[Rfam]
RNA sequence: GUCACCGCCGGACGGGAGCGGUCGUGAGGGUUGGGGAACCUGAUGACCGGGCGCUUUCCGAGGCGACCGAGGGUCUAAGGGAGCCCGAGGCGCCGCUUCGGCGAAGGAG
Numbered sequence: 001g002u003c004a005c006c007g008c009c010g011g012a013c014g015g016g017a018g019c020g021g022u023c024g025u026g027a028g029g030g031u032u033g034g035g036g037a038a039c040c041u042g043a044u045g046a047c048c049g050g051g052c053g054c055u056u057u058c059c060g061a062g063g064c065g066a067c068c069g070a071g072g073g074u075c076u077a078a079g080g081g082a083g084c085c086c087g088a089g090g091c092g093c094c095g096c097u098u099c100g101g102c103g104a105a106g107g108a109g
Stems, first nucleotide, its partner, number of pairs: 006103007013060004018054003022050003028041005062094004067089001071086004

Background:
Actinomyces-1 RNA: a 109-nucleotide RNA. Rfam's curators put it in the seed alignment. Rfam classes the family as a small RNA.